[Rfam]
RNA sequence: GUUAAAUAAUUAACUGUACCGAAGACAGUAGGUGAGGCAACUCAUAAAUCCUACCGAGGACACUUAUUGAUAAGAUCAAUGGUCCCUCUAUGUCUACGGUGGCAUAGAGUUUUUUCGUAUAGAGA
Numbered sequence: 001g002u003u004a005a006a007u008a009a010u011u012a013a014c015u016g017u018a019c020c021g022a023a024g025a026c027a028g029u030a031g032g033u034g035a036g037g038c039a040a041c042u043c044a045u046a047a048a049u050c051c052u053a054c055c056g057a058g059g060a061c062a063c064u065u066a067u068u069g070a071u072a073a074g075a076u077c078a079a080u081g082g083u084c085c086c087u088c089u090a091u092g093u094c095u096a097c098g099g100u101g102g103c104a105u106a107g108a109g110u111u112u113u114u115u116c117g118u119a120u121a122g123a124g125a
Base pairs, nucleotide, nucleotide: 028054029053030052031051032050034043035042036041086109087108088107089106090105091104092103093102094101

Ribosomal protein L10 leader: a 125-nucleotide sequence from Enterococcus cecorum. The family's consensus secondary structure was predicted with CMfinder. This family is a putative r-protein leader autoregulatory structure found in B. subtilis and other low-GC Gram-positive bacteria. It is located in the 5' untranslated regions of mRNAs encoding ribosomal proteins L10 and L12 (rplJ-rplL). The match comes from Rfam's covariance-model search (73 bits). Its family is annotated with regulation of gene expression in the Gene Ontology. The family's RNA type in Rfam is cis-regulatory leader.